[Rfam]
L2-Alphaproteobacteria ribosomal protein leader: a 63-nucleotide RNA.
On this family, see Eckert and Weinberg, BMC Microbiol 2020: "Discovery of 20 novel ribosomal leader candidates in bacteria and archaea".
Rfam classes the family as a cis-regulatory leader.
Pairs were carried over by alignment from the consensus structure, which is taken from published work.
RNA sequence: GGGGAUCUUCGGAGCCCUUCAAAUGGCCUGCAACGUCAGGCCCCCUACAACGGAAGACAGAAA
Number, nucleotide and partner (000 for none) at each position: 001g018002g017003g016004g015005a000006u014007c000008u012009u000010c000011g000012g008013a000014g006015c004016c003017c002018u001019u000020c000021a000022a000023a000024u000025g042026g041027c040028c039029u038030g037031c000032a000033a000034c000035g000036u000037c030038a029039g028040g027041c026042c025043c000044c000045c000046u000047a000048c000049a000050a000051c000052g000053g000054a000055a000056g000057a000058c000059a000060g000061a000062a000063a000